[Rfam]
RNA sequence: AUGACGGCAGGGGGAGAGACUGCAGCUGAUGCUGCGGCGCCGAAGGAGCAAGCGCUGUGCGCGAAUCUCUCAGGCAAAAAGACUUCUGUCGGACG
Numbered sequence: 001a002u003g004a005c006g007g008c009a010g011g012g013g014g015a016g017a018g019a020c021u022g023c024a025g026c027u028g029a030u031g032c033u034g035c036g037g038c039g040c041c042g043a044a045g046g047a048g049c050a051a052g053c054g055c056u057g058u059g060c061g062c063g064a065a066u067c068u069c070u071c072a073g074g075c076a077a078a079a080a081g082a083c084u085u086c087u088g089u090c091g092g093a094c095g
Base pairs, nucleotide, nucleotide: 006090007089008088009087010086011085012084013083020037021036022035023034039075040074041073042071043070046069047068048067052062053061
RNA: Glycine riboswitch aptamer
Organism: Salsuginibacillus halophilus